[Rfam]
RNA sequence: GGCAGUUCUUGGGUGAUGCACCCCAGAAUCAGGCUCCCUCUUCUCUGGUUCCAGGUGAUGACCUGAGAAGCA
Numbered sequence: 001g002g003c004a005g006u007u008c009u010u011g012g013g014u015g016a017u018g019c020a021c022c023c024c025a026g027a028a029u030c031a032g033g034c035u036c037c038c039u040c041u042u043c044u045c046u047g048g049u050u051c052c053a054g055g056u057g058a059u060g061a062c063c064u065g066a067g068a069a070g071c072a
Stems, first nucleotide, its partner, number of pairs: 002071002006069009016059002019057004026051008

Background: Shown here is a 72-nucleotide RNA from Pipistrellus kuhlii, a member of the family "mir-9223 microRNA precursor family". Gene Ontology terms of the family: RISC complex and miRNA-mediated post-transcriptional gene silencing. Lineage of the source: Eukaryota > Vertebrata > Teleostomi > Tetrapoda > Pipistrellus.